[Rfam]
RNA sequence: AAAAAAGCGGCGCUGAAUUCUCUUCGGAGAAGCGGGGGACCCAUUUCUUUUGGGGUGAAUCCUGGCACUCGAUCCGUGCUAACUUUCGGGCCUUGUUCGGGCACUCUAUUUUCCAGCGAGGGCGGAUUGGUUAACGGAGAAUUUUGAGUGUCAGGUAGGGUUAGCUUUCGACCCGAACCCGUCAGCUAACCUCGCAAGCGUGGAAAGCUGGCCUU
Dot-bracket structure: ..........((((...(((........)))((((((....((.......))(((.....((((((((((((.......................................................................))))))))))))..((((.........))))...))).........)))))).))))...............